Epstein-Barr virus stable intronic sequence RNA 2: an 86-nucleotide sequence from Aquarana catesbeiana. For this family Rfam cites "RNA families in Epstein-Barr virus" (Moss et al., RNA Biol, 2014). Lineage of the source: Eukaryota > Tetrapoda > Amphibia > Ranoidea > Aquarana. By type it is a non-coding RNA gene.

RNA sequence: CCUUCCAAGGGUCAUGGAGGAACGCACAGACGCUGCAAUCCGAGUGGAUUGCAGCGUCUGUGCGUUCCUCCAUGACCCUUGGAAGG
Numbered sequence: 001c002c003u004u005c006c007a008a009g010g011g012u013c014a015u016g017g018a019g020g021a022a023c024g025c026a027c028a029g030a031c032g033c034u035g036c037a038a039u040c041c042g043a044g045u046g047g048a049u050u051g052c053a054g055c056g057u058c059u060g061u062g063c064g065u066u067c068c069u070c071c072a073u074g075a076c077c078c079u080u081g082g083a084a085g086g
Base pairs, nucleotide, nucleotide: 001086002085003084004083005082006081007080008079009078011076012075016071017070018069019068020067021066022065023064024063025062026061027060028059029058030057031056032055033054034053035052036051037050038049039048040047041046